[Rfam]
The record is a 54-nucleotide RNA sequence, which matches "nhaA-I RNA" in Rfam.
Rfam describes the family as follows. Acidobacteria, Alphaproteobacteria, Betaproteobacteria and Gammaproteobacteria, Verrucomicrobia, cand. division NC10.
RNA sequence: GGGUGCGGUGGCGCAAUGCUUCCGCAGGUAGUGAGGGUGGUCGGGCCGCCAUCC
Numbered sequence: 001g002g003g004u005g006c007g008g009u010g011g012c013g014c015a016a017u018g019c020u021u022c023c024g025c026a027g028g029u030a031g032u033g034a035g036g037g038u039g040g041u042c043g044g045g046c047c048g049c050c051a052u053c054c
Base pairs, nucleotide, nucleotide: 005025006024007023008022010020011019012018035054036053037052038051039050040049041048
Background:
By type it is a riboswitch.